[Rfam]
RNA: Purine riboswitch aptamer
Organism: Paenibacillus graminis
RNA sequence: AUAGUAUAGACAUAACAUUUUUGUAUAACUUCGGCGAUUAGGGUCGUGGAUCUCUACCAGGCACCGUAAAUCCUGAUUACAAAUAAGUGCCAGUGUGCA
Numbered sequence: 001a002u003a004g005u006a007u008a009g010a011c012a013u014a015a016c017a018u019u020u021u022u023g024u025a026u027a028a029c030u031u032c033g034g035c036g037a038u039u040a041g042g043g044u045c046g047u048g049g050a051u052c053u054c055u056a057c058c059a060g061g062c063a064c065c066g067u068a069a070a071u072c073c074u075g076a077u078u079a080c081a082a083a084u085a086a087g088u089g090c091c092a093g094u095g096u097g098c099a
Base pairs, nucleotide, nucleotide: 018085020083021082022081023080024079025078029049030048032046033045034044035043058075059074060073061072063071